[Rfam]
Nucleotides: 074
Base pairs, nucleotide, nucleotide: 008026009025010024011023012022013021014020015019030042031041032040033039046064047063048062049061050060052058053057
Number, partner (000 for none) and nucleotide at each position: 001000c002000a003000a004000c005000g006000a007000a008026a009025u010024u011023u012022g013021c014020c015019c016000u017000u018000c019015g020014g021013g022012c023011a024010a025009g026008u027000g028000a029000a030042a031041u032040a033039g034000c035000u036000u037000c038000g039033c040032u041031g042030u043000g044000a045000a046064a047063u048062a049061u050060u051000u052058g053057c054000u055000u056000u057053g058052c059000a060050a061049a062048u063047g064046u065000g066000a067000a068000a069000u070000a071000u072000u073000c074000g